[Rfam]
RNA sequence: AGCGCCACCGGGUCGACCCCGCGGGUGACCACCAGAUAGUCGCGCAUGGCGAUGGCGUGGCGGUUCUC
Numbered sequence: 001a002g003c004g005c006c007a008c009c010g011g012g013u014c015g016a017c018c019c020c021g022c023g024g025g026u027g028a029c030c031a032c033c034a035g036a037u038a039g040u041c042g043c044g045c046a047u048g049g050c051g052a053u054g055g056c057g058u059g060g061c062g063g064u065u066c067u068c
Base pairs, nucleotide, nucleotide: 005062008059011030012029013028016026017025018024035056037054038053040052041051042050043049
Rfam assigns this 68-nucleotide sequence from Nocardia cerradoensis to the family "ASdes TB sRNA". Taxonomically the source falls in Nocardia (Bacteria, Actinomycetes, Mycobacteriales, Nocardiaceae). The literature on the family includes a 2009 paper in Mol Microbiol by Arnvig and Young, "Identification of small RNAs in Mycobacterium tuberculosis". Rfam classes the family as a small RNA. Pairs were carried over by alignment from the consensus structure, which is taken from published work.